[Rfam]
RNA sequence: CUUCCUCCUUUGGCAAGUCACGCAAGGGAGGCCGGCUCUUCCUGCUGGCCUCCCUUGCGUGACUUGCCAAAGGAGGAAG
Numbered sequence: 001c002u003u004c005c006u007c008c009u010u011u012g013g014c015a016a017g018u019c020a021c022g023c024a025a026g027g028g029a030g031g032c033c034g035g036c037u038c039u040u041c042c043u044g045c046u047g048g049c050c051u052c053c054c055u056u057g058c059g060u061g062a063c064u065u066g067c068c069a070a071a072g073g074a075g076g077a078a079g
Stems, first nucleotide, its partner, number of pairs: 002078004007073006014066009024056010
Background
The record is a 79-nucleotide RNA from Chelydra serpentina, which matches "mir-26 microRNA precursor family" in Rfam. The family has 82 seed sequences and 2,251 matches in Rfam 15.1. For this family Rfam cites "Identification of novel genes coding for small expressed RNAs" (Lagos-Quintana et al., Science, 2001). A search with the family's covariance model found it, with a score of 61 bits.